[Rfam]
RNA sequence: UACUGUAACAGCUCUUUCAGAAUUUGUCUAGCAGGCUUUCGGGUUUUUCCCAGAAAGCACCC
Number, nucleotide and partner (000 for none) at each position: 001u000002a000003c000004u000005g000006u000007a000008a000009c000010a000011g000012c000013u000014c000015u000016u000017u000018c000019a000020g000021a000022a000023u000024u000025u000026g000027u000028c000029u000030a000031g000032c000033a000034g060035g058036c057037u056038u055039u054040c053041g000042g051043g050044u000045u000046u000047u000048u000049c000050c043051c042052a000053g040054a039055a038056a037057g036058c035059a000060c034061c000062c000

This 62-nucleotide sequence from Callithrix jacchus belongs to the Rfam family "U7 small nuclear RNA". The base pairs follow the family's consensus structure, which was predicted with PFOLD. The source organism's lineage runs through Eukaryota, Craniata, Sarcopterygii, Primates and Callithrix.